[Rfam]
The family of this 87-nucleotide RNA sequence from Gossypium laxum is "MIR7486 microRNA precursor family". The source organism's lineage runs through Eukaryota, Spermatophyta, rosids, Malvoideae and Gossypium.
RNA sequence: CACAUCAGCGCGAUUUGCUGACAUGGCAACAAGUCGCUCCUUAUAGGACGCGAUUUACUGCCACGUCAUCAAAUCGCGCUGACGUGG
Numbered sequence: 001c002a003c004a005u006c007a008g009c010g011c012g013a014u015u016u017g018c019u020g021a022c023a024u025g026g027c028a029a030c031a032a033g034u035c036g037c038u039c040c041u042u043a044u045a046g047g048a049c050g051c052g053a054u055u056u057a058c059u060g061c062c063a064c065g066u067c068a069u070c071a072a073a074u075c076g077c078g079c080u081g082a083c084g085u086g087g
Stems, first nucleotide, its partner, number of pairs: 001086003005082013019068003024063005031056007040047002
About this RNA:
Rfam links the family to the GO terms RISC complex and miRNA-mediated post-transcriptional gene silencing. A search with the family's covariance model found it, with a score of 76 bits.